[Rfam]
Shown here is an 81-nucleotide sequence from Megalops atlanticus, a member of the family "mir-31 microRNA precursor family". For this family Rfam cites "The small RNA profile during Drosophila melanogaster development" (Aravin et al., Dev Cell, 2003).

RNA sequence: AAGAUAAGAGAAGGCAAGAUAGUGGCAUAGCUGUCGCGUUUGGUGCCCUGUUAUGCCUCUAUGUUGCCAGCUUUUGCUUCC
Numbered sequence: 001a002a003g004a005u006a007a008g009a010g011a012a013g014g015c016a017a018g019a020u021a022g023u024g025g026c027a028u029a030g031c032u033g034u035c036g037c038g039u040u041u042g043g044u045g046c047c048c049u050g051u052u053a054u055g056c057c058u059c060u061a062u063g064u065u066g067c068c069a070g071c072u073u074u075u076g077c078u079u080c081c
Base pairs, nucleotide, nucleotide: 005076006075007074008073009072010071013068014067015066016065017064019062020061021060024057025056026055027054028053029052030051031050
Its family is annotated with gene silencing by miRNA and RISC complex in the Gene Ontology.